Plant signal recognition particle RNA: a 312-nucleotide RNA from Zingiber officinale.
By type it is a non-coding RNA gene.
For this family Rfam cites "Structural and energetic analysis of RNA recognition by a universally conserved protein from the signal recognition particle" (Batey et al., J Mol Biol, 2001).
Gene Ontology terms of the family: signal recognition particle, endoplasmic reticulum targeting and SRP-dependent cotranslational protein targeting to membrane, signal sequence recognition.
The match comes from Rfam's covariance-model search (131 bits).
[Rfam]
RNA sequence: GGGCUGGGUUGCACCAGCUUGUAACCCAAGCGGGUUCUGUGAGUGAUUGGAAUGAAUUGGUUGGAUUUAAAGGCGUGGAUCAUAUCUGCGAUUGCAGGUCCUGUCCGUUCCAAGUUGAUGGUGAGCCAGAAGGAUUCGGCGAAGGCCCGAUUUGACUGGUUCAGGCUGCGAAUUCUUAAAGAGGAGGGUACUGGGCCAGGCUGGUUUCACAGAGCAGUCAUUUCCCAUCCUCCUUCGACAGUGGAAGGAUAACAGGGUGGUGUGCAAUUGGUCCACAAGCUUCCUCUAGAUCCAAUUCUAACUAAUCUUUUU
Numbered sequence: 001g002g003g004c005u006g007g008g009u010u011g012c013a014c015c016a017g018c019u020u021g022u023a024a025c026c027c028a029a030g031c032g033g034g035u036u037c038u039g040u041g042a043g044u045g046a047u048u049g050g051a052a053u054g055a056a057u058u059g060g061u062u063g064g065a066u067u068u069a070a071a072g073g074c075g076u077g078g079a080u081c082a083u084a085u086c087u088g089c090g091a092u093u094g095c096a097g098g099u100c101c102u103g104u105c106c107g108u109u110c111c112a113a114g115u116u117g118a119u120g121g122u123g124a125g126c127c128a129g130a131a132g133g134a135u136u137c138g139g140c141g142a143a144g145g146c147c148c149g150a151u152u153u154g155a156c157u158g159g160u161u162c163a164g165g166c167u168g169c170g171a172a173u174u175c176u177u178a179a180a181g182a183g184g185a186g187g188g189u190a191c192u193g194g195g196c197c198a199g200g201c202u203g204g205u206u207u208c209a210c211a212g213a214g215c216a217g218u219c220a221u222u223u224c225c226c227a228u229c230c231u232c233c234u235u236c237g238a239c240a241g242u243g244g245a246a247g248g249a250u251a252a253c254a255g256g257g258u259g260g261u262g263u264g265c266a267a268u269u270g271g272u273c274c275a276c277a278a279g280c281u282u283c284c285u286c287u288a289g290a291u292c293c294a295a296u297u298c299u300a301a302c303u304a305a306u307c308u309u310u311u312u
Base pairs, nucleotide, nucleotide: 001020002019003018004017005016006015007014025034026033027032041311042310043309045307046306047305048304049303050302054298056296057295058294063293064292065291066290067289068288069287071285072284073283075276076275077274078273079272080271081270082269084268087266088265091261098258099257100256101255102254103253104252105248106247108246109245110244111243112242114239115238116237117236118235120233121232123162124161125160126159127158128157129156132153133152134151135150136149138147139146140145183229184228186225187224188223194219195218196217201212202211203210